[Rfam]
RNA sequence: UGGCGCCAACAGGCACCUGGAAACGAGGGACUCCGUGAGGAAGAGGACGCCAAAGGAUGGUGGAGCCACUAAUAAAGACAAAAAGGUCAAAUUCUUCCGAUCACGCGGGAACCUGCCGUCCAGAAUCGAAAGGUAAGUGGCGGCGUCGAAUGGGACAAGAAUUAAGCCAACAUCAAAUAUAUGUAGGACAAUUAAAAGAGGCUUUAAAGAUACGAGAAGUAAAGGUUAAAGGUAAUGAUUUGUUUAAAUUUUUUGAUUUUGUAAAGACACUUGCCUU
Numbered sequence: 001u002g003g004c005g006c007c008a009a010c011a012g013g014c015a016c017c018u019g020g021a022a023a024c025g026a027g028g029g030a031c032u033c034c035g036u037g038a039g040g041a042a043g044a045g046g047a048c049g050c051c052a053a054a055g056g057a058u059g060g061u062g063g064a065g066c067c068a069c070u071a072a073u074a075a076a077g078a079c080a081a082a083a084a085g086g087u088c089a090a091a092u093u094c095u096u097c098c099g100a101u102c103a104c105g106c107g108g109g110a111a112c113c114u115g116c117c118g119u120c121c122a123g124a125a126u127c128g129a130a131a132g133g134u135a136a137g138u139g140g141c142g143g144c145g146u147c148g149a150a151u152g153g154g155a156c157a158a159g160a161a162u163u164a165a166g167c168c169a170a171c172a173u174c175a176a177a178u179a180u181a182u183g184u185a186g187g188a189c190a191a192u193u194a195a196a197a198g199a200g201g202c203u204u205u206a207a208a209g210a211u212a213c214g215a216g217a218a219g220u221a222a223a224g225g226u227u228a229a230a231g232g233u234a235a236u237g238a239u240u241u242g243u244u245u246a247a248a249u250u251u252u253u254u255g256a257u258u259u260u261g262u263a264a265a266g267a268c269a270c271u272u273g274c275c276u277u
Base pairs, nucleotide, nucleotide: 006029007028012024034046036044093133094132095130096129101125102123105119106118107117108116142156146153147152163206164205165204166202167201168200213255214254215253216252217251218250219249220248223241224240225239226238227237228236264277265276266275268273
The family of this 277-nucleotide RNA sequence from Macaca fascicularis is "Mason-Pfizer monkey virus packaging signal".
Rfam links the family to the GO term viral genome packaging.
Rfam classes the family as a cis-regulatory element.
On this family, see Mustafa et al., Virus Res 2004: "Mutational analysis of the predicted secondary RNA structure of the Mason-Pfizer monkey virus packaging signal".